RNA sequence: CCCGCGACAGGACAAAAAGACCCCGUGCACCUUUACUACAACCUGCUAUUGGGUCUUGGCACUGCAUGUGUAGGAUAGGUGGGAGGCUUUGAACCAGGGGCGCUAGCUUCUGGGGAGCCAAUAGUGAAAUACCACCCUUGUGAUGUUGAGGCUCUAACCUAGGCGAGUGAAUCCUCGCUGGGGACCGUGGCAGGUGGGUAGUUUGACUGGGGCGGUCGCCUCCCAAAAAGUAACGGAGGCGCGCAAAGGUUCCCUCAGUGCGGCCGGUAAUCGCACGAAGAGCGCAAAGGUAGAAGGGAGCUUAACUGCGAGAUCGACGGAUCGAGCAGAUACGAAAGUAGGUCUUAGUGAUCCGGCGGUUCCGAAUGGAAGGGCCGUCGCUCAACGGAUAAAAGGUACGCCGGGGAUAACAGGCUUAUCGCCCCCGAGAGUUCACAUCGACGGGGCGGUUUGGCACCUCGAUGUCGGCUUAUCACAUCCUGGGGCUGGAGAAGGUCCCAAGGGUCGGGCUGUUCGCCCGUUAAAGUGGUACAUGAGCUGGGUUCAGAACGUCGUGAGACAGUUCGGUCUGUAUCCGUCGUGGGCGUU
Numbered sequence: 001c002c003c004g005c006g007a008c009a010g011g012a013c014a015a016a017a018a019g020a021c022c023c024c025g026u027g028c029a030c031c032u033u034u035a036c037u038a039c040a041a042c043c044u045g046c047u048a049u050u051g052g053g054u055c056u057u058g059g060c061a062c063u064g065c066a067u068g069u070g071u072a073g074g075a076u077a078g079g080u081g082g083g084a085g086g087c088u089u090u091g092a093a094c095c096a097g098g099g100g101c102g103c104u105a106g107c108u109u110c111u112g113g114g115g116a117g118c119c120a121a122u123a124g125u126g127a128a129a130u131a132c133c134a135c136c137c138u139u140g141u142g143a144u145g146u147u148g149a150g151g152c153u154c155u156a157a158c159c160u161a162g163g164c165g166a167g168u169g170a171a172u173c174c175u176c177g178c179u180g181g182g183g184a185c186c187g188u189g190g191c192a193g194g195u196g197g198g199u200a201g202u203u204u205g206a207c208u209g210g211g212g213c214g215g216u217c218g219c220c221u222c223c224c225a226a227a228a229a230g231u232a233a234c235g236g237a238g239g240c241g242c243g244c245a246a247a248g249g250u251u252c253c254c255u256c257a258g259u260g261c262g263g264c265c266g267g268u269a270a271u272c273g274c275a276c277g278a279a280g281a282g283c284g285c286a287a288a289g290g291u292a293g294a295a296g297g298g299a300g301c302u303u304a305a306c307u308g309c310g311a312g313a314u315c316g317a318c319g320g321a322u323c324g325a326g327c328a329g330a331u332a333c334g335a336a337a338g339u340a341g342g343u344c345u346u347a348g349u350g351a352u353c354c355g356g357c358g359g360u361u362c363c364g365a366a367u368g369g370a371a372g373g374g375c376c377g378u379c380g381c382u383c384a385a386c387g388g389a390u391a392a393a394a395g396g397u398a399c400g401c402c403g404g405g406g407a408u409a410a411c412a413g414g415c416u417u418a419u420c421g422c423c424c425c426c427g428a429g430a431g432u433u434c435a436c437a438u439c440g441a442c443g444g445g446g447c448g449g450u451u452u453g454g455c456a457c458c459u460c461g462a463u464g465u466c467g468g469c470u471u472a473u474c475a476c477a478u479c480c481u482g483g484g485g486c487u488g489g490a491g492a493a494g495g496u497c498c499c500a501a502g503g504g505u506c507g508g509g510c511u512g513u514u515c516g517c518c519c520g521u522u523a524a525a526g527u528g529g530u531a532c533a534u535g536a537g538c539u540g541g542g543u544u545c546a547g548a549a550c551g552u553c554g555u556g557a558g559a560c561a562g563u564u565c566g567g568u569c570u571g572u573a574u575c576c577g578u579c580g581u582g583g584g585c586g587u588u
Stems, first nucleotide, its partner, number of pairs: 001584008010576003015570001022405004027401002029397005035202004042194007051154011063142004068137001078136005085119003094113008158182003162179006205217004218240006241386001243343002249301006255281002258276006282291002306329004312323003331340003354380007362373002414455003418452001419449007429439002466541001467539004471533001472530005479504002482499006506520005547565004551560003
The family of this 588-nucleotide part of an RNA from uncultured bacterium AD254-A9 is "Bacterial large subunit ribosomal RNA". The base pairs follow the family's consensus structure, which is taken from published work. Its Rfam clan is "LSU clan".